[Rfam]
RNA sequence: UAAUCUGUCUAUGGUAUGUCCAUCUUUAAUUAUUGUAGAUCCACAUAUGACCACUCAAAACUACCUAUAAGCUCGGUUACAUCAGUGUGAUUGAAUCAUGUAAUUUUAAAAGAUUGUGUUUUUAAACGAGAAUAUA
Numbered sequence: 001u002a003a004u005c006u007g008u009c010u011a012u013g014g015u016a017u018g019u020c021c022a023u024c025u026u027u028a029a030u031u032a033u034u035g036u037a038g039a040u041c042c043a044c045a046u047a048u049g050a051c052c053a054c055u056c057a058a059a060a061c062u063a064c065c066u067a068u069a070a071g072c073u074c075g076g077u078u079a080c081a082u083c084a085g086u087g088u089g090a091u092u093g094a095a096u097c098a099u100g101u102a103a104u105u106u107u108a109a110a111a112g113a114u115u116g117u118g119u120u121u122u123u124a125a126a127c128g129a130g131a132a133u134a135u136a
Base pairs, nucleotide, nucleotide: 004134006132008129009128012125014123018119019118023113024112025111027108028107029106
Record summary:
The record is a 136-nucleotide RNA sequence from Salix viminalis, which matches "MIR480 microRNA precursor family" in Rfam. Its family is annotated with miRNA-mediated post-transcriptional gene silencing and RISC complex in the Gene Ontology. The family has 69 seed sequences and 3,070 matches in Rfam 15.1. The match comes from Rfam's covariance-model search (52 bits).